Rfam assigns this 183-nucleotide sequence from Actinacidiphila yanglinensis to the family "c-di-AMP riboswitch aptamer (ydaO/yuaA leader)". This family represents a conserved RNA structure found upstream of the ydaO and yuaA genes in Bacillus subtilis and related genes in other bacteria. Its family is annotated with regulation of gene expression and cyclic-di-AMP binding in the Gene Ontology.
RNA sequence: UGUGCGGAUCACCCGAACAUCCGCAUGGCAGGAGCGGGGGACCCAGGUAAGUCGCCGCCCGGAGCGAACCGCCGUACGACCGGCGCUCGCACACCCGGGCGGCUCGGGGUGAAGCCGCCGACCGCGGCCGGGCAUCUCCUGCCCGAACCCGACAGCUCACCUCGCAGGCGUAGGAGAGGACAU
Numbered sequence: 001u002g003u004g005c006g007g008a009u010c011a012c013c014c015g016a017a018c019a020u021c022c023g024c025a026u027g028g029c030a031g032g033a034g035c036g037g038g039g040g041a042c043c044c045a046g047g048u049a050a051g052u053c054g055c056c057g058c059c060c061g062g063a064g065c066g067a068a069c070c071g072c073c074g075u076a077c078g079a080c081c082g083g084c085g086c087u088c089g090c091a092c093a094c095c096c097g098g099g100c101g102g103c104u105c106g107g108g109g110u111g112a113a114g115c116c117g118c119c120g121a122c123c124g125c126g127g128c129c130g131g132g133c134a135u136c137u138c139c140u141g142c143c144c145g146a147a148c149c150c151g152a153c154a155g156c157u158c159a160c161c162u163c164g165c166a167g168g169c170g171u172a173g174g175a176g177a178g179g180a181c182a183u
Stems, first nucleotide, its partner, number of pairs: 010170001012168002020033003034165006044106001107150003115127004130144004